The record is a 96-nucleotide sequence from Propionispora sp. 2/2-37, which matches "Guanidine-I riboswitch aptamer" in Rfam. The match comes from Rfam's covariance-model search (84 bits).
[Rfam]
RNA sequence: UAAAUAGUUUUCUAGGGUUCCGCGGUUCGCUGGUCUGGUCCGAGAGAAAACGACAGUCUAAGGACUGUAGCACGGAGGGAUAAAAGCCCGGGAGAA
Numbered sequence: 001u002a003a004a005u006a007g008u009u010u011u012c013u014a015g016g017g018u019u020c021c022g023c024g025g026u027u028c029g030c031u032g033g034u035c036u037g038g039u040c041c042g043a044g045a046g047a048a049a050a051c052g053a054c055a056g057u058c059u060a061a062g063g064a065c066u067g068u069a070g071c072a073c074g075g076a077g078g079g080a081u082a083a084a085a086g087c088c089c090g091g092g093a094g095a096a
Stems, first nucleotide, its partner, number of pairs: 007051006015041002020038002022035001023032003053068006071091001073094001077089003